[Rfam]
RNA sequence: UUAGCUCGCCAGUUAGCGAGGUCUGUCCCCACACGACAGAUAAUCGGGUGCAACUCCCGCCCCUCUUCCGAGGGUCAUCGGAACCA
Numbered sequence: 001u002u003a004g005c006u007c008g009c010c011a012g013u014u015a016g017c018g019a020g021g022u023c024u025g026u027c028c029c030c031a032c033a034c035g036a037c038a039g040a041u042a043a044u045c046g047g048g049u050g051c052a053a054c055u056c057c058c059g060c061c062c063c064u065c066u067u068c069c070g071a072g073g074g075u076c077a078u079c080g081g082a083a084c085c086a
Stems, first nucleotide, its partner, number of pairs: 004076001005020005012051001021041007045059004060074003067082005